A member of the RNA family "ASdes TB sRNA" from Mycolicibacterium austroafricanum, 68 nucleotides long.
RNA sequence: AGCUCGACGGGGUCGACGUUGCGGGUGACGACGAGGUAGUCGCGCAGCGCGAUGCCGUGCCGGUUCUC
Number, nucleotide and partner (000 for none) at each position: 001a000002g000003c000004u063005c062006g061007a000008c059009g058010g000011g000012g029013u028014c000015g000016a026017c025018g000019u000020u000021g000022c000023g000024g000025g017026u016027g000028a013029c012030g000031a000032c000033g000034a000035g056036g055037u054038a053039g000040u052041c051042g050043c049044g048045c000046a000047g000048c044049g043050c042051g041052a040053u038054g037055c036056c035057g000058u009059g008060c000061c006062g005063g004064u000065u000066c000067u000068c000

NCBI's taxonomy places the organism under Bacteria, Actinomycetota, Mycobacteriales, Mycobacteriaceae, Mycolicibacterium austroafricanum. It is annotated as a small RNA. A reference for the family is Arnvig and Young (2009), "Identification of small RNAs in Mycobacterium tuberculosis", Mol Microbiol. The sequence is in the family's curated seed alignment.